[Rfam]
RNA sequence: ACUCAACGCGAAUUUUUUUAUAAAGGGUGAGUCUAUUCUGCUAAAGCAAGCCUUAAUAGGGAUCCUUGAUCAGUUAGUUAGCUCUAAACUUGUUAAUACAAGAGUUU
Numbered sequence: 001a002c003u004c005a006a007c008g009c010g011a012a013u014u015u016u017u018u019u020a021u022a023a024a025g026g027g028u029g030a031g032u033c034u035a036u037u038c039u040g041c042u043a044a045a046g047c048a049a050g051c052c053u054u055a056a057u058a059g060g061g062a063u064c065c066u067u068g069a070u071c072a073g074u075u076a077g078u079u080a081g082c083u084c085u086a087a088a089c090u091u092g093u094u095a096a097u098a099c100a101a102g103a104g105u106u107u
Stems, first nucleotide, its partner, number of pairs: 024085005038073002044067003051061002

Rfam assigns this 107-nucleotide RNA to the family "6S-Flavo RNA". It is one of the family's seed sequences. The family's consensus secondary structure is taken from published work. By type it is a small RNA.